[Rfam]
RNA sequence: CCUGCGAUGAUGAUGAUGUCGCCAUGACUUUCGUUCUCCUGAGCUUGCUGAAGCCACGGAUUUCAAUCUGAGGAGG
Numbered sequence: 001c002c003u004g005c006g007a008u009g010a011u012g013a014u015g016a017u018g019u020c021g022c023c024a025u026g027a028c029u030u031u032c033g034u035u036c037u038c039c040u041g042a043g044c045u046u047g048c049u050g051a052a053g054c055c056a057c058g059g060a061u062u063u064c065a066a067u068c069u070g071a072g073g074a075g076g
Stems, first nucleotide, its partner, number of pairs: 001076003005072001

This 76-nucleotide RNA sequence from Corythaixoides concolor belongs to the Rfam family "Small nucleolar RNA SNORD59".
The literature on the family includes a 2002 paper in Mol Cell Biol by Galardi et al., "Purified box C/D snoRNPs are able to reproduce site-specific 2'-O-methylation of target RNA in vitro".
The source organism's lineage runs through Eukaryota, Chordata, Dipnotetrapodomorpha, Musophagidae and Corythaixoides.
Clan: SNORD59 clan.
The family's consensus secondary structure was predicted with ILM.